[Rfam]
RNA sequence: AGCCGUGCGGUGAGCACAGAGCGAACUAUUCUUUCGCCUUUUACUAAAGAAUUCCGUGUGCUCGCCGCUUAUAGCGGCAUAAGCCUAUUUUUGGAAGCCUAUUUCCAUUCCCG
Dot-bracket structure: ..((((.(((((((((((.........(((((((...........)))))))....)))))))))))......)))).....................(.............)
U5 spliceosomal RNA: a 113-nucleotide RNA from Gossypium aridum. For this family Rfam cites "The uRNA database" (Zwieb, Nucleic Acids Res, 1997). From the family's description: U5 RNA is a component of both types of known spliceosome. The precise function of this molecule is unknown, though it is known that the 5' loop is required for splice site selection and p220 binding, and that both the 3' stem-loop and the Sm site are important for Sm protein binding and cap methylation. Lineage of the source: Eukaryota > Gunneridae > malvids > Malvoideae > Gossypium.